Shown here is a 30-nucleotide sequence from Anaerostipes butyraticus, a member of the family "CRISPR RNA direct repeat element". Pairs were carried over by alignment from the consensus structure, which was predicted with WAR.

RNA sequence: AUUUAAAAACAUCUUAUGUUAUUGUUUAAC
Numbered sequence: 001a002u003u004u005a006a007a008a009a010c011a012u013c014u015u016a017u018g019u020u021a022u023u024g025u026u027u028a029a030c
Base pairs, nucleotide, nucleotide: 009019010018011017012016